radC RNA: a 145-nucleotide sequence. It is annotated as a cis-regulatory element. The match comes from Rfam's covariance-model search (86 bits).
RNA sequence: ACGAUACCCCCACAUAUUGCUGACCCGGUCAGCACUGUGCCCCGGCAGCAGCGGUCUUCAAUGCUGCAUCGCGGAUAUUCCGCGCCGACCGCGCCAGCCCGUUCCGCAUCGUAUCGCGGGCGUCCGCCUUCACCGGUGGCGAUGC
Numbered sequence: 001a002c003g004a005u006a007c008c009c010c011c012a013c014a015u016a017u018u019g020c021u022g023a024c025c026c027g028g029u030c031a032g033c034a035c036u037g038u039g040c041c042c043c044g045g046c047a048g049c050a051g052c053g054g055u056c057u058u059c060a061a062u063g064c065u066g067c068a069u070c071g072c073g074g075a076u077a078u079u080c081c082g083c084g085c086c087g088a089c090c091g092c093g094c095c096a097g098c099c100c101g102u103u104c105c106g107c108a109u110c111g112u113a114u115c116g117c118g119g120g121c122g123u124c125c126g127c128c129u130u131c132a133c134c135g136g137u138g139g140c141g142a143u144g145c
Base pairs, nucleotide, nucleotide: 011039012038013037014036019033020032021031022030023029024028045067046066047065048064049063050062053090054089055088056087070084071083072082073081074080116145117144118143124139125138126137127136128135
Dot-bracket structure: ..........((((....((((((...))))))..)))).....((((((..[[[[.....))))))..(((((.....)))))..]]]].........................(((.....(((((......)))))...)))